Bacterial large subunit ribosomal RNA: a 72-nucleotide part of an RNA from Dictyoglomus thermophilum. Rfam's curators put it in the seed alignment. The family's consensus secondary structure is taken from published work.

[Rfam]
RNA sequence: GGUAGGAGAGCUAUGCUCAAAGAGGGUUUCCCUUUUUGAGCAAGGCUCGACUGCGUGCCUGUUGAAGAAUGA
Numbered sequence: 001g002g003u004a005g006g007a008g009a010g011c012u013a014u015g016c017u018c019a020a021a022g023a024g025g026g027u028u029u030c031c032c033u034u035u036u037u038g039a040g041c042a043a044g045g046c047u048c049g050a051c052u053g054c055g056u057g058c059c060u061g062u063u064g065a066a067g068a069a070u071g072a
Base pairs, nucleotide, nucleotide: 002054003053004052005051008048009047010046011045012044058071060069